[Rfam]
Bacterial large subunit ribosomal RNA: a 335-nucleotide part of an RNA from Granulicatella sp. zg-ZJ.
The match comes from Rfam's covariance-model search (2889 bits).
The family's consensus secondary structure is taken from published work.
NCBI's taxonomy places the organism under Bacteria, Bacillati, Lactobacillales, Carnobacteriaceae, Granulicatella.
The family has 102 seed sequences and 51,934 matches in Rfam 15.1.
RNA sequence: CGAGCGAACUCUCGUUAAGGAACUCGGCAAAAUGACCCCGUAACUUCGGGAGAAGGGGUGCUGAUGGAAGCAUCAGCCGCAGUGAAUAGGCCCAAGCGACUGUUUAUCAAAAACACAGGUCUCUGCAAAAUCGAAAGAUGACGUAUAGGGGCUGACGCCUGCCCGGUGCUGGAAGGUUAAGAGGAGUGCUUAGCGCAAGCGAAGGUAUGAAUUGAAGCCCCAGUAAACGGCGGCCGUAACUAUAACGGUCCUAAGGUAGCGAAAUUCCUUGUCGGGUAAGUUCCGACCCGCACGAAAGGCGUAACGAUUUGGGCACUGUCUCAACGAGAGGCUCG
Number, nucleotide and partner (000 for none) at each position: 001c335002g334003a333004g332005c000006g000007a000008a000009c330010u329011c328012u327013c326014g325015u324016u323017a000018a321019g320020g319021a000022a000023c000024u000025c000026g000027g000028c000029a000030a000031a000032a000033u000034g000035a059036c058037c057038c056039c055040g000041u000042a000043a000044c049045u000046u000047c000048g000049g044050g000051a000052g000053a000054a000055g039056g038057g037058g036059u035060g077061c076062u075063g074064a073065u072066g071067g000068a000069a000070g000071c066072a065073u064074c063075a062076g061077c060078c082079g000080c000081a000082g078083u000084g000085a000086a000087u000088a000089g000090g314091c313092c312093c311094a310095a309096g308097c306098g305099a000100c000101u115102g114103u113104u000105u000106a000107u000108c000109a000110a000111a000112a000113a103114c102115a101116c000117a000118g153119g152120u151121c150122u149123c148124u147125g146126c143127a000128a000129a000130a139131u138132c137133g000134a000135a000136a000137g132138a131139u130140g000141a000142c000143g126144u000145a000146u125147a124148g123149g122150g121151g120152c119153u118154g000155a000156c301157g300158c299159c298160u000161g231162c230163c229164c000165g000166g228167u227168g224169c223170u222171g221172g220173a000174a000175g219176g218177u217178u000179a000180a000181g213182a212183g000184g000185a000186g208187u207188g206189c205190u204191u000192a000193g200194c199195g000196c000197a000198a000199g194200c193201g000202a000203a000204g190205g189206u188207a187208u186209g000210a000211a000212u182213u181214g000215a000216a000217g177218c176219c175220c172221c171222a170223g169224u168225a000226a000227a167228c166229g163230g162231c161232g250233g249234c248235c247236g246237u245238a000239a000240c000241u000242a000243u000244a000245a237246c236247g235248g234249u233250c232251c255252u000253a000254a000255g251256g000257u000258a000259g000260c000261g288262a000263a000264a000265u000266u000267c000268c000269u000270u000271g287272u286273c285274g284275g283276g282277u000278a000279a000280g000281u000282u276283c275284c274285g273286a272287c271288c261289c000290g000291c000292a000293c000294g000295a000296a000297a000298g159299g158300c157301g156302u000303a000304a000305c098306g097307a000308u096309u095310u094311g093312g092313g091314c090315a000316c000317u000318g000319u020320c019321u018322c000323a016324a015325c014326g013327a012328g011329a010330g009331g000332c004333u003334c002335g001